[Rfam]
RNA sequence: UAUCUUUGCAUCGUAAUUCCAAAAGUUGGGGUUCUACAUAAUAAUCAUUCAAGUAAUAUUGGCAUG
Number, nucleotide and partner (000 for none) at each position: 001u000002a000003u000004c000005u000006u000007u000008g000009c000010a000011u000012c000013g000014u000015a033016a032017u031018u030019c029020c028021a000022a000023a000024a000025g000026u000027u000028g020029g019030g018031g017032u016033u015034c000035u000036a000037c000038a000039u000040a000041a000042u000043a000044a000045u000046c000047a000048u000049u000050c000051a000052a000053g000054u000055a000056a000057u000058a000059u000060u000061g000062g000063c000064a000065u000066g000